[Rfam]
RNA: Metazoan signal recognition particle RNA
RNA sequence: ACUGGAAGGUUGGCAUCUUCUGUAAUCACGCCUCUGUGAAGUCGGAUUGUGGGAUGGCCUGAGGGCUGGGAGUUCUGUGUAAUGGAAUUCCUCAUGUUGACGGAACGUCCGCACUAAGCUUACCGUCAAUAUGGGUACCAUGGAGUCGAGGUAUUCAGGUUGGCUAAGGAGGGGUGUACCGGGCCAGGGGUGAAAACCAGCAGCCAAGAGUCCCCGCGGUAAGCAGUAGUGGGAUAGCGUACCGGAGUGUGGAGCCGUUACCAGCCCAGCCAAUAUGAUUGGACCACAAUCUUU
Numbered sequence: 001a002c003u004g005g006a007a008g009g010u011u012g013g014c015a016u017c018u019u020c021u022g023u024a025a026u027c028a029c030g031c032c033u034c035u036g037u038g039a040a041g042u043c044g045g046a047u048u049g050u051g052g053g054a055u056g057g058c059c060u061g062a063g064g065g066c067u068g069g070g071a072g073u074u075c076u077g078u079g080u081a082a083u084g085g086a087a088u089u090c091c092u093c094a095u096g097u098u099g100a101c102g103g104a105a106c107g108u109c110c111g112c113a114c115u116a117a118g119c120u121u122a123c124c125g126u127c128a129a130u131a132u133g134g135g136u137a138c139c140a141u142g143g144a145g146u147c148g149a150g151g152u153a154u155u156c157a158g159g160u161u162g163g164c165u166a167a168g169g170a171g172g173g174g175u176g177u178a179c180c181g182g183g184c185c186a187g188g189g190g191u192g193a194a195a196a197c198c199a200g201c202a203g204c205c206a207a208g209a210g211u212c213c214c215c216g217c218g219g220u221a222a223g224c225a226g227u228a229g230u231g232g233g234a235u236a237g238c239g240u241a242c243c244g245g246a247g248u249g250u251g252g253a254g255c256c257g258u259u260a261c262c263a264g265c266c267c268a269g270c271c272a273a274u275a276u277g278a279u280u281g282g283a284c285c286a287c288a289a290u291c292u293u294u
Stems, first nucleotide, its partner, number of pairs: 001042003004021007026039003044292009055281003059277001063271001065270006075264003079261005085256001088253002091251001093249003097245001101244003105240004109233002112231005118224009127162004132157008141148002164168001171214005182205003189198003